[Rfam]
RNA sequence: GAAAUUUGAGAGGAGUUGACCCUAGUACGAGAGGACCGGGUUGAACGUACCUCUGGUGUACCUGUCGUCGUGCCAACGGCGCAGCAGGGUAGCUAUGUACGGACGGGAUAACCGCUGAAAGCAUCUAAGCGGGAAGCCUCCCUCGAGAUAAGAUUUCACAGGACGGUCGAAGACCACGACCUUGAUAGAUCGGAUGUGGAAGUGCGGUAACGCAUGGAGCUAACCGAUACUAAUCGUCCUAUU
Numbered sequence: 001g002a003a004a005u006u007u008g009a010g011a012g013g014a015g016u017u018g019a020c021c022c023u024a025g026u027a028c029g030a031g032a033g034g035a036c037c038g039g040g041u042u043g044a045a046c047g048u049a050c051c052u053c054u055g056g057u058g059u060a061c062c063u064g065u066c067g068u069c070g071u072g073c074c075a076a077c078g079g080c081g082c083a084g085c086a087g088g089g090u091a092g093c094u095a096u097g098u099a100c101g102g103a104c105g106g107g108a109u110a111a112c113c114g115c116u117g118a119a120a121g122c123a124u125c126u127a128a129g130c131g132g133g134a135a136g137c138c139u140c141c142c143u144c145g146a147g148a149u150a151a152g153a154u155u156u157c158a159c160a161g162g163a164c165g166g167u168c169g170a171a172g173a174c175c176a177c178g179a180c181c182u183u184g185a186u187a188g189a190u191c192g193g194a195u196g197u198g199g200a201a202g203u204g205c206g207g208u209a210a211c212g213c214a215u216g217g218a219g220c221u222a223a224c225c226g227a228u229a230c231u232a233a234u235c236g237u238c239c240u241a242u243u
Stems, first nucleotide, its partner, number of pairs: 001157007010144004016044007046101005054095003061088005066081006105139003112132005161239004165181005186232003189228005196220001202215005